This 247-nucleotide RNA from Enterovirus deconjuncti belongs to the Rfam family "Picornavirus internal ribosome entry site (IRES)". On this family, see Ray and Das, Nucleic Acids Res 2002: "La autoantigen is required for the internal ribosome entry site-mediated translation of Coxsackievirus B3 RNA". Rfam's curators write: This family represents the Picornavirus internal ribosome entry site (IRES). IRES elements allow cap and end-independent translation of mRNA in the host cell. The sequence is in the family's curated seed alignment.
RNA sequence: AUGAGACGCUAGACAUGAACAAGGUGUGAAGAGUUUAUUGAGCUACUAUAGAGUCCUCCGGCCCCUGAAUGCGGCUAAUCCUAACCAUGGAGCAAGUGCUCACAAACCAGUGGGUUGCUUGUCGUAACGCGCAAGUCCGUGGCGGAACCGACUACUUUGGGUGUCCGUGUUUCACUUUUUACUUUUAUGACUGCUAAUGGUGACAAUUUAAUAUUGUUACCAUUUGGCUUGUCAAAUUGAUCACAUA
Numbered sequence: 001a002u003g004a005g006a007c008g009c010u011a012g013a014c015a016u017g018a019a020c021a022a023g024g025u026g027u028g029a030a031g032a033g034u035u036u037a038u039u040g041a042g043c044u045a046c047u048a049u050a051g052a053g054u055c056c057u058c059c060g061g062c063c064c065c066u067g068a069a070u071g072c073g074g075c076u077a078a079u080c081c082u083a084a085c086c087a088u089g090g091a092g093c094a095a096g097u098g099c100u101c102a103c104a105a106a107c108c109a110g111u112g113g114g115u116u117g118c119u120u121g122u123c124g125u126a127a128c129g130c131g132c133a134a135g136u137c138c139g140u141g142g143c144g145g146a147a148c149c150g151a152c153u154a155c156u157u158u159g160g161g162u163g164u165c166c167g168u169g170u171u172u173c174a175c176u177u178u179u180u181a182c183u184u185u186u187a188u189g190a191c192u193g194c195u196a197a198u199g200g201u202g203a204c205a206a207u208u209u210a211a212u213a214u215u216g217u218u219a220c221c222a223u224u225u226g227g228c229u230u231g232u233c234a235a236a237u238u239g240a241u242c243a244c245a246u247a
Stems, first nucleotide, its partner, number of pairs: 006010001019025002033194002041192002044189002059167003063161003072150003079146003085142007093121004098115006123129002196224012